[Rfam]
RNA sequence: GGUAGUAGCAGCGAAGGAGGGUGGAAAUCCCUCCCGCCGUAAAGGGCAAGGGUUCCUCAGCAAUGUUCGUCAGCUGAGGGUUAGCCGGUCCUAAGGCGAGGCCUAACUGGUACUUGCCGAAAGGGAAAGGGGUUAAUAUUCCCCUGCCACGGAGGUAGGUGGGGCAACUCAGGCUAACCUCCUGACGGGUUGAGAUAGGCGGAGUGGGGAAUCCUCUCCAUCCAAGCUCUCAAGUCCCUGGAGUACCGUAAUGGUGAGAAGGGGAUGAAGGAGUGAUGGGCCGUUAGGUUUCGCCAAUUCUUAGCCCCCAUGAAAAGGGAGGUUAGAGCGAUCCUCCGUGACCGUACCUAGAACCGACACAGGUGCCCCUGGGUGAGAAGCCCAAGGCGUCU
Number, nucleotide and partner (000 for none) at each position: 001g000002g000003u000004a000005g000006u000007a000008g000009c000010a000011g000012c000013g000014a000015a000016g034017g033018a032019g031020g030021g029022u000023g000024g000025a000026a000027a000028u000029c021030c020031c019032u018033c017034c016035c389036g388037c387038c386039g000040u000041a000042a000043a000044g368045g367046g366047c365048a000049a000050g348051g347052g000053u000054u000055c079056c078057u077058c076059a075060g074061c000062a000063a000064u072065g071066u000067u000068c000069g000070u000071c065072a064073g000074c060075u059076g058077a057078g056079g055080g000081u000082u000083a000084g000085c000086c344087g343088g342089u000090c124091c123092u000093a000094a000095g118096g117097c116098g115099a114100g113101g111102c110103c109104u000105a000106a000107c000108u000109g103110g102111u101112a000113c100114u099115u098116g097117c096118c095119g000120a000121a000122a000123g091124g090125g000126a000127a000128a145129g144130g143131g142132g141133u000134u000135a000136a000137u000138a000139u000140u000141c132142c131143c130144c129145u128146g000147c000148c340149a339150c338151g337152g336153a335154g334155g333156u000157a000158g000159g000160u000161g000162g000163g000164g000165c000166a000167a000168c000169u000170c000171a000172g000173g000174c000175u000176a000177a000178c000179c000180u000181c319182c318183u317184g000185a000186c000187g307188g306189g305190u304191u303192g302193a301194g300195a299196u000197a000198g295199g294200c293201g292202g291203a000204g221205u220206g219207g218208g217209g000210a000211a000212u000213c000214c000215u000216c000217u208218c207219c206220a205221u204222c000223c000224a000225a000226g274227c273228u272229c271230u000231c000232a000233a000234g000235u265236c264237c263238c262239u261240g000241g000242a000243g000244u000245a255246c254247c253248g000249u000250a000251a000252u000253g247254g246255u245256g000257a000258g000259a000260a000261g239262g238263g237264g236265a235266u000267g000268a000269a000270g000271g229272a228273g227274u226275g000276a000277u000278g000279g000280g000281c000282c287283g000284u000285u000286a000287g282288g000289u000290u000291u202292c201293g200294c199295c198296a000297a000298u000299u195300c194301u193302u192303a191304g190305c189306c188307c187308c000309c000310a000311u000312g000313a000314a000315a000316a000317g183318g182319g181320a000321g000322g000323u000324u000325a000326g000327a000328g000329c000330g000331a000332u000333c155334c154335u153336c152337c151338g150339u149340g148341a000342c088343c087344g086345u000346a000347c051348c050349u000350a000351g000352a000353a000354c363355c362356g000357a000358c000359a000360c000361a000362g355363g354364u000365g047366c046367c045368c044369c000370u384371g383372g382373g381374u000375g000376a000377g000378a000379a000380g000381c373382c372383c371384a370385a000386g038387g037388c036389g035390u000391c000392u000
Rfam assigns this 392-nucleotide part of an RNA from Sulfolobales archaeon HS-7 to the family "Archaeal large subunit ribosomal RNA".